The family of this 215-nucleotide sequence from Chondrocystis sp. NIES-4102 is "HNH endonuclease-associated RNA and ORF (HEARO) RNA". On this family, see Weinberg et al., Nature 2009: "Exceptional structured noncoding RNAs revealed by bacterial metagenome analysis". The family's consensus secondary structure is taken from published work. The match comes from Rfam's covariance-model search (139 bits). By type it is a non-coding RNA gene.

RNA sequence: GUCAGCACCCCGCGCUAAAGCGAACGGGGCUUCAAGCCUCUAGCUGUAGCUAGCUGACCAGUCUAAAUCUUAACUGACUGCGUUAUUUAAGUCAUGACACCCUUGGGUACGUGCCAGCCUUCCGCUCUGUCGCUAACUAUUAAACAUUCCUACGAGGGACAAGAAAGUGUAGUUAGCUUAACAAGCUCAAAUAACAUUGACGAGGCAAACAUUAC
Number, nucleotide and partner (000 for none) at each position: 001g058002u057003c056004a055005g054006c053007a051008c000009c029010c028011c026012g025013c000014g021015c020016u000017a000018a000019a000020g015021c014022g000023a000024a000025c012026g011027g000028g010029g009030c036031u035032u000033c000034a000035a031036g030037c000038c000039u000040c000041u000042a000043g000044c000045u000046g000047u000048a000049g000050c000051u007052a000053g006054c005055u004056g003057a002058c001059c000060a000061g201062u200063c199064u000065a197066a079067a000068u077069c076070u000071u000072a000073a000074c000075u000076g069077a068078c000079u066080g000081c000082g195083u194084u193085a192086u191087u190088u189089a000090a187091g186092u185093c000094a000095u000096g000097a130098c129099a000100c000101c124102c000103u000104u000105g120106g119107g118108u117109a000110c000111g000112u207113g206114c205115c204116a000117g108118c107119c106120u105121u000122c000123c000124g101125c000126u000127c000128u000129g098130u097131c000132g177133c176134u175135a174136a173137c172138u171139a170140u169141u000142a000143a000144a168145c167146a000147u165148u164149c163150c000151u161152a000153c000154g000155a000156g000157g000158g000159a000160c000161a151162a000163g149164a148165a147166a000167g145168u144169g140170u139171a138172g137173u136174u135175a134176g133177c132178u000179u000180a000181a000182c000183a000184a000185g092186c091187u090188c000189a088190a087191a086192u085193a084194a083195c082196a000197u065198u000199g063200a062201c061202g000203a000204g115205g114206c113207a112208a000209a000210c000211a000212u000213u000214a000215c000